[Rfam]
RNA sequence: GGCGCGUGCUUAAUGAGUACACGCUUUGUAAAAGAAAAUGUAGUUCAGCGGGAUGCUGGCUUAUACUAGUUGACAUUUUCUUUAAUACAAUCUCCAGUAUGAGGAAAAACUACUGUUUGGGCCGCGUGAAAUGCGUCGGGUCCAUC
Number, nucleotide and partner (000 for none) at each position: 001g025002g024003c023004g022005c000006g020007u019008g018009c017010u016011u000012a000013a000014u000015g000016a010017g009018u008019a007020c006021a000022c004023g003024c002025u001026u000027u000028g000029u000030a000031a083032a082033a000034g080035a079036a078037a077038a076039u075040g074041u000042a061043g060044u000045u059046c058047a057048g056049c055050g000051g000052g000053a000054u000055g049056c048057u047058g046059g045060c043061u042062u000063a000064u000065a000066c000067u000068a000069g000070u000071u000072g000073a000074c040075a039076u038077u037078u036079u035080c034081u000082u032083u031084a000085a000086u000087a000088c000089a000090a000091u000092c103093u102094c101095c000096a000097g000098u000099a000100u000101g094102a093103g092104g000105a000106a000107a000108a000109a000110c000111u000112a000113c000114u000115g000116u000117u000118u144119g143120g142121g141122c140123c139124g136125c135126g134127u133128g000129a000130a000131a000132u000133g127134c126135g125136u124137c000138g000139g123140g122141u121142c120143c119144a118145u000146c000
cow-rumen-3 RNA: a 146-nucleotide sequence. It is one of the family's seed sequences. Rfam classes the family as a small RNA.